[Rfam]
RNA sequence: AGGGCUUUUAAAUUCAUCCCGUGAGGUGAAAAAGGCGAUCAUAGUUCAAGUUUAUAUUUCUAGGAGAAUUUUUUAUGCAUAGAAAAAAUUUUCCUAUAUGAAAGCAGCCCUUUUGCAAACAAAAAUAAAUAGGGUUGCUUUUUUGU
Numbered sequence: 001a002g003g004g005c006u007u008u009u010a011a012a013u014u015c016a017u018c019c020c021g022u023g024a025g026g027u028g029a030a031a032a033a034g035g036c037g038a039u040c041a042u043a044g045u046u047c048a049a050g051u052u053u054a055u056a057u058u059u060c061u062a063g064g065a066g067a068a069u070u071u072u073u074u075a076u077g078c079a080u081a082g083a084a085a086a087a088a089u090u091u092u093c094c095u096a097u098a099u100g101a102a103a104g105c106a107g108c109c110c111u112u113u114u115g116c117a118a119a120c121a122a123a124a125a126u127a128a129a130u131a132g133g134g135u136u137g138c139u140u141u142u143u144u145g146u
Base pairs, nucleotide, nucleotide: 004036005035006034007033008032009031013030014029015028016027017026018025059098061096062095063094064093065092066091067090068089069088070087071086072085073084074083101141102140103139104138105137106136107135108134109133110132111131113129114128

Record summary
Shown here is a 146-nucleotide RNA sequence from Granulicatella elegans, a member of the family "PyrR binding site". It is annotated as a cis-regulatory element. The match comes from Rfam's covariance-model search (55 bits). The organism belongs to Granulicatella elegans, within Bacteria. Rfam's curators write: This family represents the PyrR binding site and terminator structure. This RNA structure is found upstream of a variety of genes involved in pyrimidine biosynthesis and transport. The alignment also includes a portion of the antiterminator structure.